[Rfam]
RNA: Small nucleolar RNA SNORA15
Organism: Eudromia elegans
RNA sequence: GCAUGGACGAAUUCUGCGUUAGCUUUUCCCAGUAGCUAAUGCAGUCAGACACUAUGCAAGAACAUACUCCCUUUUGACACACAGAUUGGUAUGCGUUUUAUUUGGAAAUGGGCAUACCUGUGGAAGUGGAUACAUGA
Numbered sequence: 001g002c003a004u005g006g007a008c009g010a011a012u013u014c015u016g017c018g019u020u021a022g023c024u025u026u027u028c029c030c031a032g033u034a035g036c037u038a039a040u041g042c043a044g045u046c047a048g049a050c051a052c053u054a055u056g057c058a059a060g061a062a063c064a065u066a067c068u069c070c071c072u073u074u075u076g077a078c079a080c081a082c083a084g085a086u087u088g089g090u091a092u093g094c095g096u097u098u099u100a101u102u103u104g105g106a107a108a109u110g111g112g113c114a115u116a117c118c119u120g121u122g123g124a125a126g127u128g129g130a131u132a133c134a135u136g137a
Base pairs, nucleotide, nucleotide: 001057002056003055004054005053006052014044015043016042017041018040019039068130069129070128071126072125073124074123075122076121088118089117090116091115092114093113094112096110